[Rfam]
RNA sequence: GUGCAAAAAUGGUUAAACUUGCUCCCAAUAUUGAUUUCCAUUCUUCUACUUUGUCAGCUGGACUCAUUAUUACACCAGUUGAUUUUCAUGAAUGGUACAUAA
Numbered sequence: 001g002u003g004c005a006a007a008a009a010u011g012g013u014u015a016a017a018c019u020u021g022c023u024c025c026c027a028a029u030a031u032u033g034a035u036u037u038c039c040a041u042u043c044u045u046c047u048a049c050u051u052u053g054u055c056a057g058c059u060g061g062a063c064u065c066a067u068u069a070u071u072a073c074a075c076c077a078g079u080u081g082a083u084u085u086u087c088a089u090g091a092a093u094g095g096u097a098c099a100u101a102a
Base pairs, nucleotide, nucleotide: 038095039094040093041092042091053083054082055081056080057079058078059077060076
Annotation: A member of the RNA family "Small nucleolar RNA snoR99" from Quercus lobata, 102 nucleotides long. Gene Ontology terms of the family: nucleolus and RNA processing. Taxonomically the source falls in Quercus (Eukaryota, Tracheophyta, Mesangiospermae, fabids). By type it is an H/ACA-box small nucleolar RNA. Pairs were carried over by alignment from the consensus structure, which was predicted with WAR.